Shown here is an 85-nucleotide RNA from Paenibacillus pectinilyticus, a member of the family "c-di-GMP-I riboswitch aptamer".
[Rfam]
RNA sequence: UACUGAAAAUGGCAAACUUACCGAAAGGUAAGGGCGCAAAGUUAUGGGCCUAAAGCUUCAAAGCUAUGGCUGCCAAACCGCCAGU
Numbered sequence: 001u002a003c004u005g006a007a008a009a010u011g012g013c014a015a016a017c018u019u020a021c022c023g024a025a026a027g028g029u030a031a032g033g034g035c036g037c038a039a040a041g042u043u044a045u046g047g048g049c050c051u052a053a054a055g056c057u058u059c060a061a062a063g064c065u066a067u068g069g070c071u072g073c074c075a076a077a078c079c080g081c082c083a084g085u
Stems, first nucleotide, its partner, number of pairs: 012037002017032006041078003045075003048070003055064003
The match comes from Rfam's covariance-model search (78 bits).